[Rfam]
RNA sequence: GCGGGACCAAGCAACCUCCCGCUCAGACCUUGCCGGUUCAAGUGUUGC
Dot-bracket structure: ((((((....[[[[[.))))))...((((.....)))).....]]]]]
RNA: chrB-b RNA